[Rfam]
A member of the RNA family "BsrG" from Cohnella sp. CIP 111063, 240 nucleotides long. Gene Ontology terms of the family: toxin activity and autolysis. The base pairs follow the family's consensus structure, which was predicted with WAR. Rfam describes the family as follows. bsrE, bsrG and bsrH pair through intermolecular interactions with antisense sRNAs. They form type I toxin/antitoxin system that includes an mRNA encoding for a short, toxic peptide (bsrE, bsrG and bsrH) and an antitoxin that is comprised of an antisense RNA. bsrG encodes a 39-amino-acid toxin, and the 180 nucleotide antisense sRNA called SR4 acts as the antitoxin (they overlap by 123 nucleotides). SR4 interaction with the 3'UTR of bsrG RNA promotes bsrG degradation and inhibits its translation. BsrG interferes with cell envelope biosynthesis, causes membrane invaginations and delocalisation of the cell wall synthesis and initiates autolysis. bsrE RNA encodes 30 amino-acid toxin peptide. Its antitoxin gene, SR5 overlaps by 112 nucleotides at the 3' end of bsrE. SR5 also overlaps bsrG from nucleotide 163 to 52 (Rfam overlap check). The antitoxin SR5 promotes bsrE degradation but unlike SR4 it does not directly inhibits toxin mRNA translation. By type it is a small RNA. Lineage of the source: Bacteria > Bacillati > Bacilli > Paenibacillaceae > Cohnella. The match comes from Rfam's covariance-model search (89 bits).
RNA sequence: UACAACAGUAUAGGCUUGCAAGGGCGGUCGGCUAAUCUCCCCGAAGGGAGGUGAUGCCCAUGACAGUAUUCGAGGGACUUAUACUUAUGAUAACGUUCGGUUCGCUGAUCGUAUCGGUACUGUCCUUUAAACGAAAAUAGACCGCCCCUCACCAAGGAAUCGGUCUAUUUCCUGACUAUUUUCCAAGCCUACCGCCCUUAAAAGCGGCUGUUGUAAGGAGUCGUGUUGGUAGCACGGCUC
Numbered sequence: 001u002a003c004a005a006c007a008g009u010a011u012a013g014g015c016u017u018g019c020a021a022g023g024g025c026g027g028u029c030g031g032c033u034a035a036u037c038u039c040c041c042c043g044a045a046g047g048g049a050g051g052u053g054a055u056g057c058c059c060a061u062g063a064c065a066g067u068a069u070u071c072g073a074g075g076g077a078c079u080u081a082u083a084c085u086u087a088u089g090a091u092a093a094c095g096u097u098c099g100g101u102u103c104g105c106u107g108a109u110c111g112u113a114u115c116g117g118u119a120c121u122g123u124c125c126u127u128u129a130a131a132c133g134a135a136a137a138u139a140g141a142c143c144g145c146c147c148c149u150c151a152c153c154a155a156g157g158a159a160u161c162g163g164u165c166u167a168u169u170u171c172c173u174g175a176c177u178a179u180u181u182u183c184c185a186a187g188c189c190u191a192c193c194g195c196c197c198u199u200a201a202a203a204g205c206g207g208c209u210g211u212u213g214u215a216a217g218g219a220g221u222c223g224u225g226u227u228g229g230u231a232g233c234a235c236g237g238c239u240c
Base pairs, nucleotide, nucleotide: 001215002214003213004212005211007209008208011191012190013189014188015187016186017151018150021149022148023147024146026143027142028141029140033054035052037050038049039048040047041046062124063123064122065121066120067119068118077088100115102113192207193206194205195204218240219239220238221237222236223235224234225233226232227231